[Rfam]
Shown here is a 137-nucleotide RNA sequence, a member of the family "Enterobacteria sRNA STnc130". The match comes from Rfam's covariance-model search (111 bits).

RNA sequence: UAUAACGAAAUUAUUCGUUAUCAGCUUUUUCUGCUGACUUUCAUUCGGAGGAGUAUUACUACUUUAGAGGCAGGGGGUAUUGCGUCGUAUCAAUUCACAGGCAUAAAAAAAGCGCCCGAAGGCGCUUUUUUUGUUUU
Numbered sequence: 001u002a003u004a005a006c007g008a009a010a011u012u013a014u015u016c017g018u019u020a021u022c023a024g025c026u027u028u029u030u031c032u033g034c035u036g037a038c039u040u041u042c043a044u045u046c047g048g049a050g051g052a053g054u055a056u057u058a059c060u061a062c063u064u065u066a067g068a069g070g071c072a073g074g075g076g077g078u079a080u081u082g083c084g085u086c087g088u089a090u091c092a093a094u095u096c097a098c099a100g101g102c103a104u105a106a107a108a109a110a111a112g113c114g115c116c117c118g119a120a121g122g123c124g125c126u127u128u129u130u131u132u133g134u135u136u137u
Stems, first nucleotide, its partner, number of pairs: 060069001109128008